[Rfam]
RNA: MIR8622 microRNA precursor family
RNA sequence: CCGAAACUGGGCCGGAACCAAGCGGCAUCCAACAUUGGUCUCAGCCGUGCUCGCCGCGACUGACCCCAAUCUCCUGAACUGCGGGUGUAGAGCAGUAGCUGAUGCCACUAGCUACUGCUGGCACUCCGUCCGUUCAGGGGCUUACGGUCCGUGGCGGUGAGUAUGGCUGUGAAAAAUAUUGGAUGCCGCUUGGUUCCGGCGUAGAUCUCGG
Numbered sequence: 001c002c003g004a005a006a007c008u009g010g011g012c013c014g015g016a017a018c019c020a021a022g023c024g025g026c027a028u029c030c031a032a033c034a035u036u037g038g039u040c041u042c043a044g045c046c047g048u049g050c051u052c053g054c055c056g057c058g059a060c061u062g063a064c065c066c067c068a069a070u071c072u073c074c075u076g077a078a079c080u081g082c083g084g085g086u087g088u089a090g091a092g093c094a095g096u097a098g099c100u101g102a103u104g105c106c107a108c109u110a111g112c113u114a115c116u117g118c119u120g121g122c123a124c125u126c127c128g129u130c131c132g133u134u135c136a137g138g139g140g141c142u143u144a145c146g147g148u149c150c151g152u153g154g155c156g157g158u159g160a161g162u163a164u165g166g167c168u169g170u171g172a173a174a175a176a177u178a179u180u181g182g183a184u185g186c187c188g189c190u191u192g193g194u195u196c197c198g199g200c201g202u203a204g205a206u207c208u209c210g211g
Stems, first nucleotide, its partner, number of pairs: 001211004006206001007204003011200022034177003039172002042169011054157004059152002062149004068143002071140001073138007083127003091119010